[Rfam]
RNA sequence: AACCUGUAAUGAACUACUUUAAUUCCUGACACCUCAUAUGAAAACUGCAUAUAUAGUCUGAUUAUUGUGCAAGACAGAGGCUU
Dot-bracket structure: (.((.......................................((((......)))).....................)).).